A member of the RNA family "c-di-AMP riboswitch aptamer (ydaO/yuaA leader)" from Streptomyces carminius, 212 nucleotides long. A search with the family's covariance model found it, with a score of 49 bits.

[Rfam]
RNA sequence: ACCGCCGGUACGCCGAAUCCUGCCGCCCGGUCGGGGGACGGACCACAGUCGAACGCGGCAGGAGCGGGGAAACCACAUAUCCGCCGUACCGUGCCUUCCGCCGGUACGGCUCGGGGUGAAGCCACUCCCCGGCGCGCCUCGGCGCACCGGGAACGGCCGGGCAACUCCAGCCCGAAUCCGACAGCUAACCUCGCAGGCGUAGGAGAGGACAU
Numbered sequence: 001a002c003c004g005c006c007g008g009u010a011c012g013c014c015g016a017a018u019c020c021u022g023c024c025g026c027c028c029g030g031u032c033g034g035g036g037g038a039c040g041g042a043c044c045a046c047a048g049u050c051g052a053a054c055g056c057g058g059c060a061g062g063a064g065c066g067g068g069g070a071a072a073c074c075a076c077a078u079a080u081c082c083g084c085c086g087u088a089c090c091g092u093g094c095c096u097u098c099c100g101c102c103g104g105u106a107c108g109g110c111u112c113g114g115g116g117u118g119a120a121g122c123c124a125c126u127c128c129c130c131g132g133c134g135c136g137c138c139u140c141g142g143c144g145c146a147c148c149g150g151g152a153a154c155g156g157c158c159g160g161g162c163a164a165c166u167c168c169a170g171c172c173c174g175a176a177u178c179c180g181a182c183a184g185c186u187a188a189c190c191u192c193g194c195a196g197g198c199g200u201a202g203g204a205g206a207g208g209a210c211a212u
Base pairs, nucleotide, nucleotide: 011199012198013197014196018063019062020061021060022059023058024057025056026055064194065193066192067191068190069189074113114179115178116177122156123155159173160172161171162170